[Rfam]
RNA sequence: AUACACAUGAUGUGAACAUUUCAGUAUGAGUAAAUCAAUGAUACUGUAAACGCUUGCUGAUGUA
Numbered sequence: 001a002u003a004c005a006c007a008u009g010a011u012g013u014g015a016a017c018a019u020u021u022c023a024g025u026a027u028g029a030g031u032a033a034a035u036c037a038a039u040g041a042u043a044c045u046g047u048a049a050a051c052g053c054u055u056g057c058u059g060a061u062g063u064a
Base pairs, nucleotide, nucleotide: 002064003063004062005061015054017052022046023045024044025043026042027041